[Rfam]
RNA sequence: GAUUGGCAGGAAUGAUGAAUCAAUUAGAUGUGCGAAGUCUCCUUGUGAGCUUAACUUUUGAGGCAUACAUUCUGUCUGACCUGCCAAUC
Numbered sequence: 001g002a003u004u005g006g007c008a009g010g011a012a013u014g015a016u017g018a019a020u021c022a023a024u025u026a027g028a029u030g031u032g033c034g035a036a037g038u039c040u041c042c043u044u045g046u047g048a049g050c051u052u053a054a055c056u057u058u059u060g061a062g063g064c065a066u067a068c069a070u071u072c073u074g075u076c077u078g079a080c081c082u083g084c085c086a087a088u089c
Stems, first nucleotide, its partner, number of pairs: 001089010

Small nucleolar RNA Z266: an 89-nucleotide RNA sequence from Oryza sativa.
Pairs were carried over by alignment from the consensus structure, which was predicted with PFOLD.
Gene Ontology terms of the family: nucleolus and RNA processing.
Rfam 15.1 lists 719 matches to the family in 213 species.
Rfam's curators put it in the seed alignment.